[Rfam]
RNA sequence: UGAUGACAAUUCUCCGGAAUCGCUGCGUCUCUGUGAUGAAAGCUUGCUCGAACCCUUUUCCAUCUGACGGCUGAGCUCUCGUCCUC
Numbered sequence: 001u002g003a004u005g006a007c008a009a010u011u012c013u014c015c016g017g018a019a020u021c022g023c024u025g026c027g028u029c030u031c032u033g034u035g036a037u038g039a040a041a042g043c044u045u046g047c048u049c050g051a052a053c054c055c056u057u058u059u060c061c062a063u064c065u066g067a068c069g070g071c072u073g074a075g076c077u078c079u080c081g082u083c084c085u086c
Base pairs, nucleotide, nucleotide: 002086003085005083006082